This 119-nucleotide sequence from Pseudoxanthomonas helianthi belongs to the Rfam family "SAH (S-adenosyl-L-homocysteine) riboswitch aptamer". For this family Rfam cites "Riboswitches that sense S-adenosylhomocysteine and activate genes involved in coenzyme recycling" (Wang et al., Mol Cell, 2008). Taxonomically the source falls in Pseudoxanthomonas (Bacteria, Pseudomonadota, Gammaproteobacteria, Lysobacteraceae). The match comes from Rfam's covariance-model search (50 bits). Pairs were carried over by alignment from the consensus structure, which is taken from published work.

[Rfam]
RNA sequence: GCCGUCGAGGGGCGCUGCGACUGUAUGCGGAUCCCUCCGCAAGAGCCCGCACAUCCAUGUGCGGACUUUUCAAUACAGCCAGGCUCGGCGGCAUUCAUCGGUAACGGCGCCCGGAACAG
Numbered sequence: 001g002c003c004g005u006c007g008a009g010g011g012g013c014g015c016u017g018c019g020a021c022u023g024u025a026u027g028c029g030g031a032u033c034c035c036u037c038c039g040c041a042a043g044a045g046c047c048c049g050c051a052c053a054u055c056c057a058u059g060u061g062c063g064g065a066c067u068u069u070u071c072a073a074u075a076c077a078g079c080c081a082g083g084c085u086c087g088g089c090g091g092c093a094u095u096c097a098u099c100g101g102u103a104a105c106g107g108c109g110c111c112c113g114g115a116a117c118a119g
Stems, first nucleotide, its partner, number of pairs: 002091007021078006